[Rfam]
RNA sequence: GGCGAGACACCGCCGCGCGGGCCGGGGACCCAGCCGCGCCGCUCCCCCAUGCAGGCGGCGCACGGGGUGAAUCCCGCUCAGGCAGCGCCUGCGCGGGUAGGGCACCUUCCCUGCCCGAACCCGACAGCUAACCCGGUAGGCGGCCGAGGAAGAAAGG
Numbered sequence: 001g002g003c004g005a006g007a008c009a010c011c012g013c014c015g016c017g018c019g020g021g022c023c024g025g026g027g028a029c030c031c032a033g034c035c036g037c038g039c040c041g042c043u044c045c046c047c048c049a050u051g052c053a054g055g056c057g058g059c060g061c062a063c064g065g066g067g068u069g070a071a072u073c074c075c076g077c078u079c080a081g082g083c084a085g086c087g088c089c090u091g092c093g094c095g096g097g098u099a100g101g102g103c104a105c106c107u108u109c110c111c112u113g114c115c116c117g118a119a120c121c122c123g124a125c126a127g128c129u130a131a132c133c134c135g136g137u138a139g140g141c142g143g144c145c146g147a148g149g150a151a152g153a154a155a156g157g
Stems, first nucleotide, its partner, number of pairs: 003019002021137006031064001065122003073097004100116004